[Rfam]
T-box leader: a 210-nucleotide sequence from Salirhabdus euzebyi. Pairs were carried over by alignment from the consensus structure, which is taken from published work. Uncharged tRNA acts as the effector for transcription antitermination of genes in the T-box leader family. T-boxes are found upstream of many aminoacyl-tRNA synthetase genes and some amino acid biosynthetic genes usually in Gram-positive bacteria. It is annotated as a cis-regulatory leader. The match comes from Rfam's covariance-model search (116 bits). The organism belongs to Salirhabdus, within Bacteria.
RNA sequence: UUGGAAACGAUGAGAAGGAUUAGUAAAUGGCCCUAUUUUUUGACAGAGAGGAAAUCAAUUUGCUGAAAGAUUUCUAUAGAAUAGUCAUUGAACCUACCUUUGAGUUCAGUAUGGAAACAUACUUGCGGAGAUAUAUCCGUUAUCGUAAGGAAGUGUACAGUGCAAUUUUGCUGUGAAUUAGGGUGGUAACGCCAAACCUCGGUCCCUUUG
Numbered sequence: 001u002u003g004g005a006a007a008c009g010a011u012g013a014g015a016a017g018g019a020u021u022a023g024u025a026a027a028u029g030g031c032c033c034u035a036u037u038u039u040u041u042g043a044c045a046g047a048g049a050g051g052a053a054a055u056c057a058a059u060u061u062g063c064u065g066a067a068a069g070a071u072u073u074c075u076a077u078a079g080a081a082u083a084g085u086c087a088u089u090g091a092a093c094c095u096a097c098c099u100u101u102g103a104g105u106u107c108a109g110u111a112u113g114g115a116a117a118c119a120u121a122c123u124u125g126c127g128g129a130g131a132u133a134u135a136u137c138c139g140u141u142a143u144c145g146u147a148a149g150g151a152a153g154u155g156u157a158c159a160g161u162g163c164a165a166u167u168u169u170g171c172u173g174u175g176a177a178u179u180a181g182g183g184u185g186g187u188a189a190c191g192c193c194a195a196a197c198c199u200c201g202g203u204c205c206c207u208u209u210g
Stems, first nucleotide, its partner, number of pairs: 007105002015100004026089006039078001041076001050075006108123006126139003156175007180207004191203003195199001
Dot-bracket structure: ......((......((((.......((((((.......(.(........((((((..............))))))).).....)))))).......))))...))..((((((....))))))..(((........)))................(((((((......)))))))....((((.......(((.(...).)))))))...